Small nucleolar RNA sn3060: a 65-nucleotide RNA from Strongylus vulgaris. The organism belongs to Strongylus, within Eukaryota.
[Rfam]
RNA sequence: GCUUCUGUGAAGAAAACAAACCCAGCUCUCUGAAUUCGAGGUGAGGAAUAAAAAGUCUGAGAAGC
Numbered sequence: 001g002c003u004u005c006u007g008u009g010a011a012g013a014a015a016a017c018a019a020a021c022c023c024a025g026c027u028c029u030c031u032g033a034a035u036u037c038g039a040g041g042u043g044a045g046g047a048a049u050a051a052a053a054a055g056u057c058u059g060a061g062a063a064g065c
Stems, first nucleotide, its partner, number of pairs: 001065005
It is annotated as a C/D-box small nucleolar RNA. The literature on the family includes a 2002 paper in Biochem Biophys Res Commun by Higa et al., "Location of 2(')-O-methyl nucleotides in 26S rRNA and methylation guide snoRNAs in Caenorhabditis elegans".